L20-Deltaproteobacteria ribosomal protein leader: a 61-nucleotide sequence from Oryzomonas rubra. The base pairs follow the family's consensus structure, which is taken from published work. On this family, see Eckert and Weinberg, BMC Microbiol 2020: "Discovery of 20 novel ribosomal leader candidates in bacteria and archaea". The organism belongs to Oryzomonas, within Bacteria.
[Rfam]
Nucleotides: 061
Base pairs, nucleotide, nucleotide: 003041004040007038008037010035011034012033013032014031015030016029017028
Number, partner (000 for none) and nucleotide at each position: 001000u002000g003041c004040c005000a006000a007038g008037a009000a010035c011034c012033a013032u014031g015030a016029g017028g018000a019000c020000c021000u022000g023000u024000c025000u026000c027000c028017c029016c030015u031014u032013a033012u034011g035010g036000a037008u038007c039000g040004g041003g042000c043000g044000a045000a046000a047000u048000u049000c050000a051000u052000c053000a054000u055000g056000a057000a058000g059000g060000a061000g